RNA sequence: GCCCGCCGGGGUUCCUGGCGAUGCGAUUUUUUGACCCGCUGACCCAAAAUCACAUUGCCAGGGAUUUCCAACGGGC
Numbered sequence: 001g002c003c004c005g006c007c008g009g010g011g012u013u014c015c016u017g018g019c020g021a022u023g024c025g026a027u028u029u030u031u032u033g034a035c036c037c038g039c040u041g042a043c044c045c046a047a048a049a050u051c052a053c054a055u056u057g058c059c060a061g062g063g064a065u066u067u068c069c070a071a072c073g074g075g076c
Base pairs, nucleotide, nucleotide: 001076003074004073005072009069010068011065012064013063014062015061016060017059018058019057020056021055022054023053025051026050027049028048029047
Shown here is a 76-nucleotide RNA sequence from Bambusicola thoracicus, a member of the family "mir-23 microRNA precursor family". The match comes from Rfam's covariance-model search (60 bits). Gene Ontology terms of the family: RISC complex and gene silencing by miRNA.